[Rfam]
About this RNA
BsrG: a 280-nucleotide RNA from Metabacillus indicus. The match comes from Rfam's covariance-model search (55 bits). Rfam 15.1 lists 614 matches to the family in 343 species. For this family Rfam cites "BsrG/SR4 from Bacillus subtilis--the first temperature-dependent type I toxin-antitoxin system" (Jahn et al., Mol Microbiol, 2012). Pairs were carried over by alignment from the consensus structure, which was predicted with WAR. Rfam links the family to the GO terms autolysis and toxin activity.
RNA sequence: UAUACAUGCUGGAUUCCAGCUGGGCGGUCGGCUGAGCCCCUGUCUCUUUUCUUUUGAAGCAAAGGAAGGGGGUGAUGCCCGGAUGACAGUCUUUGAAAGCUUGACGUUAGCUAUCUAUUUCGCCACGCUUAUCAUUGCCAUCCUGUCAUUUGACCAUAAAAAAUAGACCCCCGGCUGUUCGGCUGCAGGCGAGGUCUGGAAUGUUCUUUGACUGUUUCUUUCAGGCCGGCCCCAGAUUCGGGACCCUUGUAUGCAGGCCGCAGGCUGUCAAGCACCUGCG
Numbered sequence: 001u002a003u004a005c006a007u008g009c010u011g012g013a014u015u016c017c018a019g020c021u022g023g024g025c026g027g028u029c030g031g032c033u034g035a036g037c038c039c040c041u042g043u044c045u046c047u048u049u050u051c052u053u054u055u056g057a058a059g060c061a062a063a064g065g066a067a068g069g070g071g072g073u074g075a076u077g078c079c080c081g082g083a084u085g086a087c088a089g090u091c092u093u094u095g096a097a098a099g100c101u102u103g104a105c106g107u108u109a110g111c112u113a114u115c116u117a118u119u120u121c122g123c124c125a126c127g128c129u130u131a132u133c134a135u136u137g138c139c140a141u142c143c144u145g146u147c148a149u150u151u152g153a154c155c156a157u158a159a160a161a162a163a164u165a166g167a168c169c170c171c172c173g174g175c176u177g178u179u180c181g182g183c184u185g186c187a188g189g190c191g192a193g194g195u196c197u198g199g200a201a202u203g204u205u206c207u208u209u210g211a212c213u214g215u216u217u218c219u220u221u222c223a224g225g226c227c228g229g230c231c232c233c234a235g236a237u238u239c240g241g242g243a244c245c246c247u248u249g250u251a252u253g254c255a256g257g258c259c260g261c262a263g264g265c266u267g268u269c270a271a272g273c274a275c276c277u278g279c280g
Stems, first nucleotide, its partner, number of pairs: 001253005008245001010228003014224002017177008026169004033075001035073001037071005085147005099112001122139001124137002187208003230242003259280006
Dot-bracket structure: (((((..(.(((.((.((((((((.((((...(.(.(((((.........................))))).).).........(((((.........(............).........(.((..........)).)...)))))..................)))))))))))).........(((................)))..............)).))).(((.......)))..)...))))).....((((((..........))))))